Shown here is a 168-nucleotide sequence from Anaerostipes sp. 992a, a member of the family "glmS glucosamine-6-phosphate activated ribozyme aptamer".
Rfam's curators write: This entry contains a glucosamine-6-phosphate activated ribozyme that is found in the mRNA for GlmS. GlmS is an enzyme that uses fructose-6-phosphate and glutamine to generate glucosamine-6-phosphate.
RNA sequence: GACAAAUAGCAAGCGCCAGAUCCUGCUCGUUCGUGAUAAUAAGGGUAGGAUGACGAGGAGAAAAGUUAUCGAAGAUUCGGCGGAUGCUUUUCCGUGUCGCUUUGGACACGUAUUUCCUGGCAAACCCUGGAAGUAAUUUCGGAAACAGAUUCAGGAUUACCAAAGCAU
Numbered sequence: 001g002a003c004a005a006a007u008a009g010c011a012a013g014c015g016c017c018a019g020a021u022c023c024u025g026c027u028c029g030u031u032c033g034u035g036a037u038a039a040u041a042a043g044g045g046u047a048g049g050a051u052g053a054c055g056a057g058g059a060g061a062a063a064a065g066u067u068a069u070c071g072a073a074g075a076u077u078c079g080g081c082g083g084a085u086g087c088u089u090u091u092c093c094g095u096g097u098c099g100c101u102u103u104g105g106a107c108a109c110g111u112a113u114u115u116c117c118u119g120g121c122a123a124a125c126c127c128u129g130g131a132a133g134u135a136a137u138u139u140c141g142g143a144a145a146c147a148g149a150u151u152c153a154g155g156a157u158u159a160c161c162a163a164a165g166c167a168u
Stems, first nucleotide, its partner, number of pairs: 020051009060092005069080004093110006115156005127142006